RNA sequence: AAUUUGAGGUUUCCUCGGUAGUUAACUGCAGCCGAUUCCAUAAUUCGGCAGUUAACUGCCGAAGGGCAU
Numbered sequence: 001a002a003u004u005u006g007a008g009g010u011u012u013c014c015u016c017g018g019u020a021g022u023u024a025a026c027u028g029c030a031g032c033c034g035a036u037u038c039c040a041u042a043a044u045u046c047g048g049c050a051g052u053u054a055a056c057u058g059c060c061g062a063a064g065g066g067c068a069u
Stems, first nucleotide, its partner, number of pairs: 012065002015062015
A member of the RNA family "MIR2629 microRNA precursor family" from Medicago truncatula, 69 nucleotides long. The base pairs follow the family's consensus structure, which was predicted with RNAalifold. Its family is annotated with miRNA-mediated post-transcriptional gene silencing and RISC complex in the Gene Ontology.